[Rfam]
RNA: U5 spliceosomal RNA
Organism: Chlamydomonas schloesseri
RNA sequence: GGCGCUGAGCUGAACGCGUAGCGAAUAUCUCUUUCGCCUUUUACUAAAGAGAUCCGCGAGUUUUGCUCUCGAAAGCGCAUAUCCUUCUUUUUGUGGGCCUUUUGGCC
Number, nucleotide and partner (000 for none) at each position: 001g000002g000003c077004g076005c075006u074007g000008a067009g066010c065011u000012g063013a062014a061015c060016g000017c058018g057019u000020a000021g000022c000023g000024a000025a000026u000027a053028u052029c051030u050031c049032u048033u047034u046035c000036g000037c000038c000039u000040u000041u000042u000043a000044c000045u000046a034047a033048a032049g031050a030051g029052a028053u027054c000055c000056g000057c018058g017059a000060g015061u014062u013063u012064u000065g010066c009067u008068c000069u000070c000071g000072a000073a000074a006075g005076c004077g003078c000079a000080u000081a000082u000083c000084c000085u000086u000087c000088u000089u000090u000091u000092u000093g000094u000095g000096g000097g000098c000099c104100u000101u000102u000103u000104g099105g000106c000107c000